Rfam assigns this 451-nucleotide part of an RNA from uncultured bacterium AD254-A9 to the family "Bacterial large subunit ribosomal RNA".
RNA sequence: CUCCCCGAAAUAUAUUUAGGUAUAGCCUCAGGAAUUUUGUCCGGGAGGUAGAGCACUGAAUGGGCUAGGGACCCUACCCGGUUACCGACCCCAAUCAAACUCCGAAUGCCCGAGACAUGGACCCUGGGAGUCAGUGGGCGAGCGAUAAUGUCCGUCCGCGAAAGGGAAACAGCCCAGACCGUCAGCUAAGGCCCCUAAGUGUGUGCUAAGUGAGAAAGGAUGUGGAUUUACAGAGACAACUAGGAGGUUGGCUUAGAAGCAGCCAUUCCUUUGAAGAGUGCGUAAUAGCUCACUAGUCAAGUGGAUCUGCGCCGAUAAUGGUCGGGACUCAAGCACACCGCCGAAGCUACGGAUGUGACACCUCUUCGGAGGUGAAACAUGGUAGGGGAGCGUUCCCAAGGCAUUGAAGCGGACCCGAGAGGGCUUCCGUGGAGCGUUGGGAAGUGAGUAU
Numbered sequence: 001c002u003c004c005c006c007g008a009a010a011u012a013u014a015u016u017u018a019g020g021u022a023u024a025g026c027c028u029c030a031g032g033a034a035u036u037u038u039g040u041c042c043g044g045g046a047g048g049u050a051g052a053g054c055a056c057u058g059a060a061u062g063g064g065c066u067a068g069g070g071a072c073c074c075u076a077c078c079c080g081g082u083u084a085c086c087g088a089c090c091c092c093a094a095u096c097a098a099a100c101u102c103c104g105a106a107u108g109c110c111c112g113a114g115a116c117a118u119g120g121a122c123c124c125u126g127g128g129a130g131u132c133a134g135u136g137g138g139c140g141a142g143c144g145a146u147a148a149u150g151u152c153c154g155u156c157c158g159c160g161a162a163a164g165g166g167a168a169a170c171a172g173c174c175c176a177g178a179c180c181g182u183c184a185g186c187u188a189a190g191g192c193c194c195c196u197a198a199g200u201g202u203g204u205g206c207u208a209a210g211u212g213a214g215a216a217a218g219g220a221u222g223u224g225g226a227u228u229u230a231c232a233g234a235g236a237c238a239a240c241u242a243g244g245a246g247g248u249u250g251g252c253u254u255a256g257a258a259g260c261a262g263c264c265a266u267u268c269c270u271u272u273g274a275a276g277a278g279u280g281c282g283u284a285a286u287a288g289c290u291c292a293c294u295a296g297u298c299a300a301g302u303g304g305a306u307c308u309g310c311g312c313c314g315a316u317a318a319u320g321g322u323c324g325g326g327a328c329u330c331a332a333g334c335a336c337a338c339c340g341c342c343g344a345a346g347c348u349a350c351g352g353a354u355g356u357g358a359c360a361c362c363u364c365u366u367c368g369g370a371g372g373u374g375a376a377a378c379a380u381g382g383u384a385g386g387g388g389a390g391c392g393u394u395c396c397c398a399a400g401g402c403a404u405u406g407a408a409g410c411g412g413a414c415c416c417g418a419g420a421g422g423g424c425u426u427c428c429g430u431g432g433a434g435c436g437u438u439g440g441g442a443a444g445u446g447a448g449u450a451u
Base pairs, nucleotide, nucleotide: 001390002389003388004387005386006385011024012023013022014021015020026130027128028127029126030125031124032123036121038117039116040115041114042112043111044110045109051103052101053100057097058096059095061093062092063091064090068086069085070083071082072081073080134159135158136157137156138155139154140153142151143150164175165174166173179352180351181350182349184348185347186346190342191341192340199339201338202337203336204335205334206333218313219312222310223309224308225307226306227305228304229303230302231301239297240296241295242294243293245270246269247268250264251263252262271275276291280289281288353380354379355378356377359374360373361372362371363370391446393443394442395441396440397439398438399437401435402434409430410429411428412427413426414423415422416421